[Rfam]
The family of this 84-nucleotide RNA sequence from Brassicogethes aeneus is "mir-2765 microRNA precursor family". It scores 58 bits against the family's covariance model. The base pairs follow the family's consensus structure, which was predicted with RNAalifold.

RNA sequence: CAAGUUGUGAAGAUUGGUAACUCCACCACCGUUGGCGUGUUAUCAACGGCCAGCGGUUGAGGAGUUCCUCGUUUUCGCUACGAU
Numbered sequence: 001c002a003a004g005u006u007g008u009g010a011a012g013a014u015u016g017g018u019a020a021c022u023c024c025a026c027c028a029c030c031g032u033u034g035g036c037g038u039g040u041u042a043u044c045a046a047c048g049g050c051c052a053g054c055g056g057u058u059g060a061g062g063a064g065u066u067c068c069u070c071g072u073u074u075u076c077g078c079u080a081c082g083a084u
Base pairs, nucleotide, nucleotide: 004081005080007078008077009076010075011074012073016069017068019066020065021064022063023062026059029056030055031054032053033052034051035050036049